[Rfam]
A member of the RNA family "sucC RNA" from Pseudomonas sp. M30-35, 68 nucleotides long. By type it is a cis-regulatory element. Lineage of the source: Bacteria > Pseudomonadota > Gammaproteobacteria > Pseudomonadales > Pseudomonas.

RNA sequence: GUCACAGGUGGUGCGGCAUUAAUGUGCAGCACCGAAUGCGCAAUACCUAAACGAAGACGGUAGACAAG
Numbered sequence: 001g002u003c004a005c006a007g008g009u010g011g012u013g014c015g016g017c018a019u020u021a022a023u024g025u026g027c028a029g030c031a032c033c034g035a036a037u038g039c040g041c042a043a044u045a046c047c048u049a050a051a052c053g054a055a056g057a058c059g060g061u062a063g064a065c066a067a068g
Base pairs, nucleotide, nucleotide: 009034010033011032012031013030014029016027017026018025019024